[Rfam]
RNA sequence: AUCGAAAGAAGAGGUUGCCUUAAACAUCAGUAACUAACUUGAGACGAAAAGCGUCGAUGAUGGUUAGUGAAAGGGUGCGAGGCCGAAGUGCGUGUGAGCUUUUUCGAACACGUGUUGGGAUCUAGUUUAAUAGACUAGGAACUGUCGCUGUACAAAGUUACAGCGGAGCGCUAUCUACGAU
Number, nucleotide and partner (000 for none) at each position: 001a000002u000003c000004g000005a000006a176007a000008g174009a000010a172011g171012a000013g000014g000015u000016u000017g083018c082019c081020u080021u079022a000023a000024a076025c075026a000027u000028c000029a000030g000031u000032a000033a068034c067035u066036a065037a064038c063039u062040u000041g000042a000043g000044a000045c000046g000047a000048a000049a000050a000051g000052c000053g000054u000055c000056g000057a000058u000059g000060a000061u000062g039063g038064u037065u036066a035067g034068u033069g000070a000071a000072a000073g000074g000075g025076u024077g000078c000079g021080a020081g019082g018083c017084c000085g000086a000087a116088g115089u114090g113091c112092g111093u110094g109095u108096g000097a000098g105099c000100u000101u000102u000103u000104u000105c098106g000107a000108a095109c094110a093111c092112g091113u090114g089115u088116u087117g143118g142119g000120a000121u139122c138123u137124a136125g135126u134127u133128u000129a000130a000131u000132a000133g127134a126135c125136u124137a123138g122139g121140a000141a000142c118143u117144g000145u166146c165147g164148c163149u162150g161151u160152a000153c000154a000155a000156a000157g000158u000159u000160a151161c150162a149163g148164c147165g146166g145167a000168g000169c000170g000171c011172u010173a000174u008175c000176u006177a000178c000179g000180a000181u000
Lysine riboswitch aptamer: a 181-nucleotide sequence from Pediococcus argentinicus. The base pairs follow the family's consensus structure, which is taken from published work. A search with the family's covariance model found it, with a score of 109 bits. Taxonomically the source falls in Pediococcus (Bacteria, Bacillati, Bacilli, Lactobacillaceae).